[Rfam]
RNA: Group II catalytic intron D1-D4-1
RNA sequence: UAACCAUUGCAUAAAGCAAUGCUGAACGCAUAGAAGUCAGCAGAGGUCAUAGUAGCCGAGAGGUGAAGGAC
Numbered sequence: 001u002a003a004c005c006a007u008u009g010c011a012u013a014a015a016g017c018a019a020u021g022c023u024g025a026a027c028g029c030a031u032a033g034a035a036g037u038c039a040g041c042a043g044a045g046g047u048c049a050u051a052g053u054a055g056c057c058g059a060g061a062g063g064u065g066a067a068g069g070a071c
Stems, first nucleotide, its partner, number of pairs: 001024002005021006037044002046071003055064003
Dot-bracket structure: ((..((((((.....)))))).))............((....)).(((......(((....)))....)))